[Rfam]
RNA: Glycine riboswitch aptamer
RNA sequence: CCGCGUACAGCAGGAGAGAGAAGCCGAACAGGCUUCCGCCGAAGGCGCAAACUCCCAUAAACGCUCAGGCAAAGGUACUGCUGUUCAUCA
Numbered sequence: 001c002c003g004c005g006u007a008c009a010g011c012a013g014g015a016g017a018g019a020g021a022a023g024c025c026g027a028a029c030a031g032g033c034u035u036c037c038g039c040c041g042a043a044g045g046c047g048c049a050a051a052c053u054c055c056c057a058u059a060a061a062c063g064c065u066c067a068g069g070c071a072a073a074g075g076u077a078c079u080g081c082u083g084u085u086c087a088u089c090a
Stems, first nucleotide, its partner, number of pairs: 007084007020036004038070003041066002045064003051058001